[Rfam]
RNA sequence: AUGGUCUGGGGAAAGGCUCCUGUGUGACUGACCCCGCCCUGUGGUGGGUGCAGCCUCGUACCAGGCAGCCCCACCCUAACCUAAAGUAAAUUCCCAGCGGAAGUUUUCCCUGGGUUUUGAAUUUGCAGUAACAGGUGUGAACAUUCUAGCAGCAGUUUGAUGAUCAUGUAUGAUACUGCAAACAGGA
Numbered sequence: 001a002u003g004g005u006c007u008g009g010g011g012a013a014a015g016g017c018u019c020c021u022g023u024g025u026g027a028c029u030g031a032c033c034c035c036g037c038c039c040u041g042u043g044g045u046g047g048g049u050g051c052a053g054c055c056u057c058g059u060a061c062c063a064g065g066c067a068g069c070c071c072c073a074c075c076c077u078a079a080c081c082u083a084a085a086g087u088a089a090a091u092u093c094c095c096a097g098c099g100g101a102a103g104u105u106u107u108c109c110c111u112g113g114g115u116u117u118u119g120a121a122u123u124u125g126c127a128g129u130a131a132c133a134g135g136u137g138u139g140a141a142c143a144u145u146c147u148a149g150c151a152g153c154a155g156u157u158u159g160a161u162g163a164u165c166a167u168g169u170a171u172g173a174u175a176c177u178g179c180a181a182a183c184a185g186g187a
Base pairs, nucleotide, nucleotide: 003081004080005079008076009075010074015070016069017068018067019065020064021063022062024061025060026055028053029052030051033048034047093114094113095112097109099107100106122182123181124180125179126178127177128176129175130174132172133171138166139165140164142162143161144160145159148157149156150155
Dot-bracket structure: ..(((..(((....((((((((.(((.(((..((............))..))).)....)))))).))))...)))..)))...........(((.(.((.....)).)..))).......(((((((((.((....(((.((((..(((....))).)))).)))....)).))))))))).....